Background
The family of this 132-nucleotide RNA sequence from Lotus japonicus is "MIR398 microRNA precursor family". The sequence is in the family's curated seed alignment.

[Rfam]
RNA sequence: GUUUAUCUCAGAGGAGUGAGCUUAAGAACACAAGCUGCAUUGGUUUGAAUUGUUAUAUCAUAUACUAGAAUCUAGUAUAUCUUUAUGUUACUAAUUUAUCUUGUGUUCUCAGGUCACCCCUUUGAGGUAACC
Number, nucleotide and partner (000 for none) at each position: 001g000002u000003u000004u000005a000006u000007c126008u125009c000010a000011g122012a121013g120014g119015a000016g117017u116018g115019a114020g000021c000022u000023u000024a000025a109026g108027a107028a106029c105030a104031c103032a102033a101034g000035c000036u000037g000038c000039a000040u000041u000042g000043g000044u000045u000046u000047g000048a000049a000050u000051u000052g000053u000054u000055a000056u000057a000058u000059c000060a000061u000062a000063u000064a000065c000066u000067a000068g000069a000070a000071u000072c000073u000074a000075g000076u000077a000078u000079a000080u000081c000082u000083u000084u000085a000086u000087g000088u000089u000090a000091c000092u000093a000094a000095u000096u000097u000098a000099u000100c000101u033102u032103g031104u030105g029106u028107u027108c026109u025110c000111a000112g000113g000114u019115c018116a017117c016118c000119c014120c013121u012122u011123u000124g000125a008126g007127g000128u000129a000130a000131c000132c000